This 66-nucleotide RNA sequence from Dickeya chrysanthemi belongs to the Rfam family "int-alpA RNA".

RNA sequence: AUUGAGCCUAGCCCGACGGGGUGAAAAGCGGGAAGCCUUACCGCCUGGCUCAAACUCUUUUAAGGC
Numbered sequence: 001a002u003u004g005a006g007c008c009u010a011g012c013c014c015g016a017c018g019g020g021g022u023g024a025a026a027a028g029c030g031g032g033a034a035g036c037c038u039u040a041c042c043g044c045c046u047g048g049c050u051c052a053a054a055c056u057c058u059u060u061u062a063a064g065g066c
Stems, first nucleotide, its partner, number of pairs: 002053007011022004028044004035066006